[Rfam]
RNA sequence: AUACAUCUGAAGUGUUCGAGAAUAUUUACACUGUGUUGACCGAACAUUUUUUAAUUGGGAUCCUAUGAGCAGCUUUGUCUGACAAGCCAUCGCAUGUGGACGUCAUUAGAAGACUGUGUGGAGCCCACCUGAUUGCUAGCGGGUUCAACCUAGCUUUAUUGAUACGGCACGAUACGGAUGUAUU
Numbered sequence: 001a002u003a004c005a006u007c008u009g010a011a012g013u014g015u016u017c018g019a020g021a022a023u024a025u026u027u028a029c030a031c032u033g034u035g036u037u038g039a040c041c042g043a044a045c046a047u048u049u050u051u052u053a054a055u056u057g058g059g060a061u062c063c064u065a066u067g068a069g070c071a072g073c074u075u076u077g078u079c080u081g082a083c084a085a086g087c088c089a090u091c092g093c094a095u096g097u098g099g100a101c102g103u104c105a106u107u108a109g110a111a112g113a114c115u116g117u118g119u120g121g122a123g124c125c126c127a128c129c130u131g132a133u134u135g136c137u138a139g140c141g142g143g144u145u146c147a148a149c150c151u152a153g154c155u156u157u158a159u160u161g162a163u164a165c166g167g168c169a170c171g172a173u174a175c176g177g178a179u180g181u182a183u184u
Base pairs, nucleotide, nucleotide: 002182003181004180005179006178007177008176009175011173012170013169014168015167017166018165032152033151035149037147038146039145040143041142057126058125059124061122062121063120070116071115072114073112074111075110076109082103083102087099088098089097090096
The record is a 184-nucleotide RNA from Facklamia hominis, which matches "6S / SsrS RNA" in Rfam. Rfam 15.1 lists 5,006 matches to the family in 4,638 species. The family's consensus secondary structure is taken from published work. NCBI's taxonomy places the organism under Bacteria, Bacillati, Aerococcaceae, Facklamia, Facklamia hominis.